[Rfam]
RNA sequence: CCCGGUCCUCGGUAGUGGCCCUCAGGAAGGACGCCCCCCGCGGGGCGCGCCUGCGGGCCUCGAUCGAAGACCGGC
Numbered sequence: 001c002c003c004g005g006u007c008c009u010c011g012g013u014a015g016u017g018g019c020c021c022u023c024a025g026g027a028a029g030g031a032c033g034c035c036c037c038c039c040g041c042g043g044g045g046c047g048c049g050c051c052u053g054c055g056g057g058c059c060u061c062g063a064u065c066g067a068a069g070a071c072c073g074g075c
Stems, first nucleotide, its partner, number of pairs: 002074006009067005017059005023053004032049003
Dot-bracket structure: .((((((.(((((...(((((.((((.....(((............))))))).)))))...))))).)))))).
Shown here is a 75-nucleotide RNA from Nocardioides marmotae, a member of the family "Actino-pnp RNA". It scores 56 bits against the family's covariance model. By type it is a cis-regulatory element.